[Rfam]
RNA sequence: UGAGCCAUGAUUGGCCAAAGGCACCCUGCCUUUGGCCAAUUAUGGCUCUCUUAGAGUGCGCUGUGAUUGGCCAAAGCAUGCAGGUCAGGUGCAUGCUUUGGCCAAUCAUCAUA
Numbered sequence: 001u002g003a004g005c006c007a008u009g010a011u012u013g014g015c016c017a018a019a020g021g022c023a024c025c026c027u028g029c030c031u032u033u034g035g036c037c038a039a040u041u042a043u044g045g046c047u048c049u050c051u052u053a054g055a056g057u058g059c060g061c062u063g064u065g066a067u068u069g070g071c072c073a074a075a076g077c078a079u080g081c082a083g084g085u086c087a088g089g090u091g092c093a094u095g096c097u098u099u100g101g102c103c104a105a106u107c108a109u110c111a112u113a
Stems, first nucleotide, its partner, number of pairs: 002048001004046005010040005016034006063109020
Shown here is a 113-nucleotide RNA from Aquarana catesbeiana, a member of the family "Listeria sRNA rli61". A reference for the family is Toledo-Arana et al. (2009), "The Listeria transcriptional landscape from saprophytism to virulence", Nature. NCBI's taxonomy places the organism under Eukaryota, Bilateria, Amphibia, Neobatrachia, Aquarana. By type it is a cis-regulatory element.